Rfam assigns this 138-nucleotide sequence from Propithecus coquereli to the family "U4 spliceosomal RNA". Gene Ontology terms of the family: U4 snRNP and spliceosomal tri-snRNP complex assembly. For this family Rfam cites "The spliceosomal snRNAs of Caenorhabditis elegans" (Thomas et al., Nucleic Acids Res, 1990). Rfam's curators write: U4 small nuclear RNA (U4 snRNA) is a component of the major U2-dependent spliceosome.

[Rfam]
RNA sequence: AGCCUUGCGCAGUGGCAGAUCGUAGCCGGUGAGGUUCAUCCGAGGCGAGGUUACUGCUGAUUGAAGACUUUCCCAACACCCGCCCCGAGGCCUGGACGUGCAGUCGGCGUUGACAACUUUCGACAGUCUCUGUGGGGA
Numbered sequence: 001a002g003c004c005u006u007g008c009g010c011a012g013u014g015g016c017a018g019a020u021c022g023u024a025g026c027c028g029g030u031g032a033g034g035u036u037c038a039u040c041c042g043a044g045g046c047g048a049g050g051u052u053a054c055u056g057c058u059g060a061u062u063g064a065a066g067a068c069u070u071u072c073c074c075a076a077c078a079c080c081c082g083c084c085c086c087g088a089g090g091c092c093u094g095g096a097c098g099u100g101c102a103g104u105c106g107g108c109g110u111u112g113a114c115a116a117c118u119u120u121c122g123a124c125a126g127u128c129u130c131u132g133u134g135g136g137g138a
Stems, first nucleotide, its partner, number of pairs: 019051003023047001025046003033041002082114001084112001086109002090105001092103003127138004